Background: A member of the RNA family "MIR5565 microRNA precursor family" from Sorghum bicolor, 109 nucleotides long. It is one of the family's seed sequences.

[Rfam]
RNA sequence: GUAGUCAGAUUCACAUCAAUCCACAUGUGUUGAGGCGGGUUGGAGUGAAACUGGAACUAAAUUCCACCCUAAUUCACUCCAACACAUGUGGAUUGAGGCGAAUCCGACA
Numbered sequence: 001g002u003a004g005u006c007a008g009a010u011u012c013a014c015a016u017c018a019a020u021c022c023a024c025a026u027g028u029g030u031u032g033a034g035g036c037g038g039g040u041u042g043g044a045g046u047g048a049a050a051c052u053g054g055a056a057c058u059a060a061a062u063u064c065c066a067c068c069c070u071a072a073u074u075c076a077c078u079c080c081a082a083c084a085c086a087u088g089u090g091g092a093u094u095g096a097g098g099c100g101a102a103u104c105c106g107a108c109a
Stems, first nucleotide, its partner, number of pairs: 004108003008104005014098001016096017035077001037075007045067003